Shown here is a 249-nucleotide RNA from Williopsis jadinii, a member of the family "Small nucleolar RNA snR191".
Taxonomically the source falls in Williopsis (Eukaryota, Opisthokonta, Ascomycota, Wickerhamomycetaceae).
Rfam links the family to the GO terms RNA processing and nucleolus.

RNA sequence: UACCAAAGUUCUUUGUCAGGGUGUCUUUCUUGAAAUACGCAUUUCAACUUUUAUCUACAAAGUAUGCCUGUUACAACUUUGGAAGAGCGAGAUAUGAUUCGCCUCUACAACUCCCGUUCUGGGUUUCUGUAACGCAGAUAUAGUCGUUUUGACUCCUGCUUAGAAUCAUGAGAGGGACUUAUGAGUUGAGCUCUCAGACCUUUGUGUCAUUUACCCAUUGAGAUGCUCGUAGUAAAGACCCUCACACUC
Numbered sequence: 001u002a003c004c005a006a007a008g009u010u011c012u013u014u015g016u017c018a019g020g021g022u023g024u025c026u027u028u029c030u031u032g033a034a035a036u037a038c039g040c041a042u043u044u045c046a047a048c049u050u051u052u053a054u055c056u057a058c059a060a061a062g063u064a065u066g067c068c069u070g071u072u073a074c075a076a077c078u079u080u081g082g083a084a085g086a087g088c089g090a091g092a093u094a095u096g097a098u099u100c101g102c103c104u105c106u107a108c109a110a111c112u113c114c115c116g117u118u119c120u121g122g123g124u125u126u127c128u129g130u131a132a133c134g135c136a137g138a139u140a141u142a143g144u145c146g147u148u149u150u151g152a153c154u155c156c157u158g159c160u161u162a163g164a165a166u167c168a169u170g171a172g173a174g175g176g177a178c179u180u181a182u183g184a185g186u187u188g189a190g191c192u193c194u195c196a197g198a199c200c201u202u203u204g205u206g207u208c209a210u211u212u213a214c215c216c217a218u219u220g221a222g223a224u225g226c227u228c229g230u231a232g233u234a235a236a237g238a239c240c241c242u243c244a245c246a247c248u249c
Stems, first nucleotide, its partner, number of pairs: 003082005019069006025062004030047005095168006106131003109125001113123003137155001142154005172243004178237003187229005194221004200206001
The family is grouped with related families in Rfam's "SNORA74 clan". A search with the family's covariance model found it, with a score of 121 bits. Rfam classes the family as an H/ACA-box small nucleolar RNA. On this family, see Badis et al., RNA 2003: "A snoRNA that guides the two most conserved pseudouridine modifications within rRNA confers a growth advantage in yeast".